RNA sequence: AAAAACGGGAAAUUGCGGUACUGCAUUAUUGCAGUAUUGAGGAAAGUCCAGGCUGCCACGACCUGAGAUGGUCGUAAUGUUCGUGCUCAUCGCAAGGUGAGGCAGAGCAAAUGCUCUGACGACGGCAAAAUCGACUCUCGUAGCCGAAAGUAGCCAUAAAGUGCACAGAGAAUGAGUAGGCUGGCGACAGCCUAGUGAAAAGUGGUAAACUCCACGAGGCAGAAACCCGAAUUUUGGUAGGGGAGCUUCCUAGAGGGAAUUAAACCAAAGGGAAGAACGCAUUAGUGCGUUAGAUAAAUAAUUUCCUAAAACAGAAACUGGCUUAUGGUU
Numbered sequence: 001a002a003a004a005a006c007g008g009g010a011a012a013u014u015g016c017g018g019u020a021c022u023g024c025a026u027u028a029u030u031g032c033a034g035u036a037u038u039g040a041g042g043a044a045a046g047u048c049c050a051g052g053c054u055g056c057c058a059c060g061a062c063c064u065g066a067g068a069u070g071g072u073c074g075u076a077a078u079g080u081u082c083g084u085g086c087u088c089a090u091c092g093c094a095a096g097g098u099g100a101g102g103c104a105g106a107g108c109a110a111a112u113g114c115u116c117u118g119a120c121g122a123c124g125g126c127a128a129a130a131u132c133g134a135c136u137c138u139c140g141u142a143g144c145c146g147a148a149a150g151u152a153g154c155c156a157u158a159a160a161g162u163g164c165a166c167a168g169a170g171a172a173u174g175a176g177u178a179g180g181c182u183g184g185c186g187a188c189a190g191c192c193u194a195g196u197g198a199a200a201a202g203u204g205g206u207a208a209a210c211u212c213c214a215c216g217a218g219g220c221a222g223a224a225a226c227c228c229g230a231a232u233u234u235u236g237g238u239a240g241g242g243g244a245g246c247u248u249c250c251u252a253g254a255g256g257g258a259a260u261u262a263a264a265c266c267a268a269a270g271g272g273a274a275g276a277a278c279g280c281a282u283u284a285g286u287g288c289g290u291u292a293g294a295u296a297a298a299u300a301a302u303u304u305c306c307u308a309a310a311a312c313a314g315a316a317a318c319u320g321g322c323u324u325a326u327g328g329u330u
Stems, first nucleotide, its partner, number of pairs: 004330003007326001008306007016039008044324003048321004053222005058075006081217005086101006102120001103118006121212002124155003132146002135143001161210002163206002177194007226242003246275006276291006
Overview
Bacterial RNase P class B: a 330-nucleotide sequence from Sporomusa sphaeroides. A search with the family's covariance model found it, with a score of 225 bits. Rfam's curators write: Ribonuclease P (RNase P) is a ubiquitous endoribonuclease, found in archaea, bacteria and eukarya as well as chloroplasts and mitochondria. Its best characterised activity is the generation of mature 5'-ends of tRNAs by cleaving the 5'-leader elements of precursor-tRNAs. Cellular RNase Ps are ribonucleoproteins. Rfam classes the family as a ribozyme.